[Rfam]
Shown here is an 86-nucleotide sequence from Capsella rubella, a member of the family "Small nucleolar RNA U61". For this family Rfam cites "Plant snoRNA database" (Brown et al., Nucleic Acids Res, 2003). Rfam classes the family as a C/D-box small nucleolar RNA. The family's consensus secondary structure was predicted with WAR. Taxonomically the source falls in Capsella (Eukaryota, Tracheophyta, Euphyllophyta, malvids).
RNA sequence: GAGCUGUGAUGAAAAAAACCGUGUGCCAGAGAUGGGAUUACUCAUCGCUGACGGUAAAACACAACCCUCUAAGAAGUUCUGAGCUU
Numbered sequence: 001g002a003g004c005u006g007u008g009a010u011g012a013a014a015a016a017a018a019c020c021g022u023g024u025g026c027c028a029g030a031g032a033u034g035g036g037a038u039u040a041c042u043c044a045u046c047g048c049u050g051a052c053g054g055u056a057a058a059a060c061a062c063a064a065c066c067c068u069c070u071a072a073g074a075a076g077u078u079c080u081g082a083g084c085u086u
Base pairs, nucleotide, nucleotide: 001086002085003084004083